[Rfam]
RNA: Plant signal recognition particle RNA
RNA sequence: UCCGGGCGGUGCAGCGACCGUCUGUAACCCAAGCGGGGGCAAGAAGAUGAGGAUGUGGGUCGCCGAUCUGGGACCUGGAAGGGCGUGCAGAGAGAUUGCCCACUCCAAACACAUGGCCACCGUCGCCACUCACCCGGAAGCUUGAGUGGAAUCGGUGUCAGAGAAAGGACUAACUGCGUCAGGCGGGCAACCGAGCAGCGCAUGCUCCUCGUCGUGUGUAGUGGAGGGACCACAGGCUUGAACGCCAUCUCCAGAUCACCCCACUCCGGCUCCUCUCACAGACCAUCUUC
Dot-bracket structure: .(((((((((......)))))))....(((....)))))...(((((((.....(((((..((((...(((((.(((((.(.(((......(((.(((.((.(((((.((((((((((((((...(((((((..(....)..)))))))...)))))((...)).((((.(...(((((....(((....)))....))))).).)))).)))))))))..)))))))....))).)))...)))...)))))).))...)))...))))...)).)))....)))))))